[Rfam]
RNA sequence: AUCGGUCUGCGCUUCCCGACAGGAGUCAUCGAAUCCCCGGGGCCUUACUCGAUCCUAAGGGAGCUGUCCCUGACCCGGCCCGUGGGCUGGGUUAUAUGGCGCCCACCUACUUCUGUAGGCGCCCAGGAUCCAAACGACGCCAUCGGUCGCCGUGGACCACCU
Numbered sequence: 001a002u003c004g005g006u007c008u009g010c011g012c013u014u015c016c017c018g019a020c021a022g023g024a025g026u027c028a029u030c031g032a033a034u035c036c037c038c039g040g041g042g043c044c045u046u047a048c049u050c051g052a053u054c055c056u057a058a059g060g061g062a063g064c065u066g067u068c069c070c071u072g073a074c075c076c077g078g079c080c081c082g083u084g085g086g087c088u089g090g091g092u093u094a095u096a097u098g099g100c101g102c103c104c105a106c107c108u109a110c111u112u113c114u115g116u117a118g119g120c121g122c123c124c125a126g127g128a129u130c131c132a133a134a135c136g137a138c139g140c141c142a143u144c145g146g147u148c149g150c151c152g153u154g155g156a157c158c159a160c161c162u
Stems, first nucleotide, its partner, number of pairs: 004158008012149001015146001017145003036127002039124003042120003059104003063100005072093009
A member of the RNA family "6S / SsrS RNA" from Martelella endophytica, 162 nucleotides long.
The organism belongs to Martelella, within Bacteria.
The family's consensus secondary structure is taken from published work.
A reference for the family is Wassarman and Storz (2000), "6S RNA regulates E. coli RNA polymerase activity", Cell.
The family has 150 seed sequences and 5,006 matches in Rfam 15.1.
It scores 73 bits against the family's covariance model.